[Rfam]
RNA: Streptomyces-metK RNA
Organism: Streptomyces benahoarensis
RNA sequence: UCGAGACUGAGUGUCCGAACCUCGCACAUGACCGAUAAACUGGCCAGCGGAUCGGGCCGAGCGCAGCUCUCGAGCCCCUCCAACAAAUGAUCAGCCAGCAGCCGCUGCAACCCCAGGGAG
Dot-bracket structure: ................................................(((..(..(((((.......)))).).)..)))..............((((....)))).............